[Rfam]
RNA: Retron msr RNA
Organism: Vibrio ostreae
RNA sequence: GCUCUUUAGCGUGAUUUGGAUUAAGUUUAUGAUUUAAUCUAGUUUGGCGUUGCGCCGAACUCUAAUUUAUUGAGUGGU
Numbered sequence: 001g002c003u004c005u006u007u008a009g010c011g012u013g014a015u016u017u018g019g020a021u022u023a024a025g026u027u028u029a030u031g032a033u034u035u036a037a038u039c040u041a042g043u044u045u046g047g048c049g050u051u052g053c054g055c056c057g058a059a060c061u062c063u064a065a066u067u068u069a070u071u072g073a074g075u076g077g078u
Stems, first nucleotide, its partner, number of pairs: 003077002005074005041061004046056004